About this RNA: The family of this 179-nucleotide RNA sequence from Virgibacillus necropolis is "Lysine riboswitch aptamer". The family's consensus secondary structure is taken from published work. Lineage of the source: Bacteria > Bacillati > Bacilli > Caryophanales > Virgibacillus. Riboswitches are metabolite binding domains within certain messenger RNAs that serve as precision sensors for their corresponding targets. It scores 106 bits against the family's covariance model.
RNA sequence: AGUAAUGGAUGAGGCGCAAAAAUCAUCAGUACCUUAUUACGUAAAGCUGCAAGUUGUAAUAAGUGAAAGGGAGAUUUGCCGAAACGAUGUUCUAUAUGCAGAUGGAACUUCGUUGGACUGUAUAUCAAUAGUAUGCAGGCUGUCAUUAUUCUUUGUAAUAAUGGUGUGCUUCCACUUGU
Number, nucleotide and partner (000 for none) at each position: 001a000002g000003u000004a000005a000006u174007g173008g172009a171010u000011g169012a000013g000014g000015c000016g079017c078018a077019a076020a075021a000022a000023u072024c071025a000026u000027c000028a000029g000030u000031a000032c000033c063034u062035u061036a060037u059038u058039a057040c000041g000042u000043a000044a000045a000046g000047c000048u000049g000050c000051a000052a000053g000054u000055u000056g000057u039058a038059a037060u036061a035062a034063g033064u000065g000066a000067a000068a000069g000070g000071g024072a023073g000074a000075u020076u019077u018078g017079c016080c000081g000082a000083a114084a113085c112086g111087a110088u000089g108090u107091u106092c105093u104094a103095u000096a000097u000098g000099c000100a000101g000102a000103u094104g093105g092106a091107a090108c089109u000110u087111c086112g085113u084114u083115g141116g140117a000118c138119u137120g136121u135122a134123u133124a132125u131126c000127a000128a000129u000130a000131g125132u124133a123134u122135g121136c120137a119138g118139g000140c116141u115142g000143u164144c163145a162146u161147u160148a159149u158150u000151c000152u000153u000154u000155g000156u000157a000158a149159u148160a147161a146162u145163g144164g143165u000166g000167u000168g000169c011170u000171u009172c008173c007174a006175c000176u000177u000178g000179u000